[Rfam]
RNA sequence: GCGGUGUGAGGUAGUUGGUUGUAUGGUUUAGCAUAAUAAAUAGCCCGGAGAUAACUGUACAACCUUCUAGCUUUCCCUGC
Numbered sequence: 001g002c003g004g005u006g007u008g009a010g011g012u013a014g015u016u017g018g019u020u021g022u023a024u025g026g027u028u029u030a031g032c033a034u035a036a037u038a039a040a041u042a043g044c045c046c047g048g049a050g051a052u053a054a055c056u057g058u059a060c061a062a063c064c065u066u067c068u069a070g071c072u073u074u075c076c077c078u079g080c
Stems, first nucleotide, its partner, number of pairs: 001080004006075001008073003012069003017064011033041001